[Rfam]
RNA sequence: CGGGGGAGGUUUCCUGUAACUCAGUUGCUGAGCCAGUUAAAAUAGAACGCAUGCUGGCUGCAGGUGCAGCCCAAAUUUCAACCUCUGUUGAUUCAUUGUCUUCCUUACGCAGUGGUUCGGUAGUCACGGUACGGGAGCGUACCUGCAGCUAUCGGUUAACGUAGACCGAACCGGGUGAGGCCGGAAACGGAGCAACUCACAGGUUUCGCCGCUAUGAGUUGGAAGAUCGCGAUGAAGAGGGGGUUGUGUUGGGCUCUGCAGCCCAGCAUGCGAACUUUUAUAGG
Dot-bracket structure: (.......)..........(((.......))).....((.((.((..(((((((.((((((((....(((((((..(.((((((((.(...(((((((((((((...((.((((((((((((((..(((((((....)))))).)..)))))))).......(((((.....((((....(((....)))....))))...))))).)))))).))....)))))...))))))))).)))))))).))))))))))))))))..)))))))..)).)).))..

This 284-nucleotide RNA from Perkinsela sp. CCAP 1560/4 belongs to the Rfam family "Metazoan signal recognition particle RNA". Its Rfam clan is "SRP clan". It scores 110 bits against the family's covariance model. From the family's description: The signal recognition particle (SRP) is a universally conserved ribonucleoprotein. It is involved in the co-translational targeting of proteins to membranes.